[Rfam]
RNA: Small nucleolar RNA Z105
RNA sequence: CGAGCAUGAUGAUGAUAAUUUAUUUAUAUUCCGAAUUAUUUAAUGAUGAAUAUACCCUCCUACUCAUUCUGA
Numbered sequence: 001c002g003a004g005c006a007u008g009a010u011g012a013u014g015a016u017a018a019u020u021u022a023u024u025u026a027u028a029u030u031c032c033g034a035a036u037u038a039u040u041u042a043a044u045g046a047u048g049a050a051u052a053u054a055c056c057c058u059c060c061u062a063c064u065c066a067u068u069c070u071g072a
Stems, first nucleotide, its partner, number of pairs: 006067004030049002